[Rfam]
RNA: L31-Actinobacteria ribosomal protein leader
Organism: Asanoa hainanensis
RNA sequence: AAGGUUCCGGUUCCCGUUCCCGUCCCAGGGGCGACCCGGCGACC
Numbered sequence: 001a002a003g004g005u006u007c008c009g010g011u012u013c014c015c016g017u018u019c020c021c022g023u024c025c026c027a028g029g030g031g032c033g034a035c036c037c038g039g040c041g042a043c044c
Base pairs, nucleotide, nucleotide: 003044004043005042007039008038009037010036015033016032017031018030019029020028022026